This 75-nucleotide sequence from Streptomyces sp. S4.7 belongs to the Rfam family "ASpks TB sRNA". It is annotated as an antisense RNA. Pairs were carried over by alignment from the consensus structure, which is taken from published work. It scores 70 bits against the family's covariance model.
[Rfam]
RNA sequence: CUUGAGCGAUCCGAGCCACAGCGGAGCAUCCUCCGGCCGGUCCUGGCCGUAGGUGGCGAGGAUGGCCUGGGCCUC
Numbered sequence: 001c002u003u004g005a006g007c008g009a010u011c012c013g014a015g016c017c018a019c020a021g022c023g024g025a026g027c028a029u030c031c032u033c034c035g036g037c038c039g040g041u042c043c044u045g046g047c048c049g050u051a052g053g054u055g056g057c058g059a060g061g062a063u064g065g066c067c068u069g070g071g072c073c074u075c
Stems, first nucleotide, its partner, number of pairs: 016024002031071003038065001043060002047056003
Dot-bracket structure: ...............((.....))......(((....(....((..(((....)))..))....)...)))....